[Rfam]
RNA sequence: CCCAUUGCGAGGCGGGAUCCUCCGGAGGAAGCCGGAAGCAAAGUCACGGCCCGGUGAUACAAGAACUCCAUACGAGGCUAAACCGCCCGGGUGACCCGGCGAAAAACAGCUAAAUCCCGGGCUGACCGGGGAACGGUGGAGUAUCCGGGGCGGGCACAGGGCCAAACUUAACGUU
Numbered sequence: 001c002c003c004a005u006u007g008c009g010a011g012g013c014g015g016g017a018u019c020c021u022c023c024g025g026a027g028g029a030a031g032c033c034g035g036a037a038g039c040a041a042a043g044u045c046a047c048g049g050c051c052c053g054g055u056g057a058u059a060c061a062a063g064a065a066c067u068c069c070a071u072a073c074g075a076g077g078c079u080a081a082a083c084c085g086c087c088c089g090g091g092u093g094a095c096c097c098g099g100c101g102a103a104a105a106a107c108a109g110c111u112a113a114a115u116c117c118c119g120g121g122c123u124g125a126c127c128g129g130g131g132a133a134c135g136g137u138g139g140a141g142u143a144u145c146c147g148g149g150g151c152g153g154g155c156a157c158a159g160g161g162c163c164a165a166a167c168u169u170a171a172c173g174u175u
Stems, first nucleotide, its partner, number of pairs: 001016003005012002031175001033173002038168001043162003048157001049155005066150004077142003082137004089117004096109001098107001
Rfam assigns this 175-nucleotide RNA from Neomoorella thermoacetica to the family "Group II catalytic intron D1-D4-3". The base pairs follow the family's consensus structure. The source organism's lineage runs through Bacteria, Clostridia, Neomoorellales, Neomoorellaceae and Neomoorella.